RNA sequence: UUGAUAAGUUGGCGGCCACCAUGCCGACAUCUUCGCGAAGAGGGGAUAGAUUGACGUGUCAAGAAAUCGUUUCAAUUGCCAUGUCGUCUAGUAGGCAAUAUGAUUGUUGCUUGUGUACAC
Numbered sequence: 001u002u003g004a005u006a007a008g009u010u011g012g013c014g015g016c017c018a019c020c021a022u023g024c025c026g027a028c029a030u031c032u033u034c035g036c037g038a039a040g041a042g043g044g045g046a047u048a049g050a051u052u053g054a055c056g057u058g059u060c061a062a063g064a065a066a067u068c069g070u071u072u073c074a075a076u077u078g079c080c081a082u083g084u085c086g087u088c089u090a091g092u093a094g095g096c097a098a099u100a101u102g103a104u105u106g107u108u109g110c111u112u113g114u115g116u117a118c119a120c
Stems, first nucleotide, its partner, number of pairs: 002035003007030001009027006058116002061112003066104004075099006084090001
RNA: Small nucleolar RNA snoR111